[Rfam]
RNA sequence: AAAUUCCUGCACGGGAAAAGGGAACGAGCCGCCCUACCCGUAAUCGAGUCUUGGGUCUGUGAAGGUAACGACACAGACUAAGCGUAGACAGAGCGACGUUCAGGCCGUAACGCAAGUGAAGCGAUUGAGCCUCGUGAUUCAAAUCCGAGGGCCGACAAGGUCGAAAACUUGGAAGGCUACAGUAGAUUUCCGUUAAGGGCGAGGAAAUCGGAGACCUCGGCGGGGUCUGAGAGCA
Numbered sequence: 001a002a003a004u005u006c007c008u009g010c011a012c013g014g015g016a017a018a019a020g021g022g023a024a025c026g027a028g029c030c031g032c033c034c035u036a037c038c039c040g041u042a043a044u045c046g047a048g049u050c051u052u053g054g055g056u057c058u059g060u061g062a063a064g065g066u067a068a069c070g071a072c073a074c075a076g077a078c079u080a081a082g083c084g085u086a087g088a089c090a091g092a093g094c095g096a097c098g099u100u101c102a103g104g105c106c107g108u109a110a111c112g113c114a115a116g117u118g119a120a121g122c123g124a125u126u127g128a129g130c131c132u133c134g135u136g137a138u139u140c141a142a143a144u145c146c147g148a149g150g151g152c153c154g155a156c157a158a159g160g161u162c163g164a165a166a167a168c169u170u171g172g173a174a175g176g177c178u179a180c181a182g183u184a185g186a187u188u189u190c191c192g193u194u195a196a197g198g199g200c201g202a203g204g205a206a207a208u209c210g211g212a213g214a215c216c217u218c219g220g221c222g223g224g225g226u227c228u229g230a231g232a233g234c235a
Stems, first nucleotide, its partner, number of pairs: 012040004020034003025031001028200002044092002048089004052084002054079008064069001126229001127227001129226006145220006151177003156171004183211001185209007
Dot-bracket structure: ...........((((....(((..(..[[.))))..))))...((..((((((((((((((..(....)..))))))))...)).)))).)).................................((.((((((..........(((((((((..((((........))))...))).....(.(((((((.......]]..))))))).)...))))))))))))).)......
Description
This 235-nucleotide RNA sequence from Paenactinomyces guangxiensis belongs to the Rfam family "Group II catalytic intron D1-D4-6".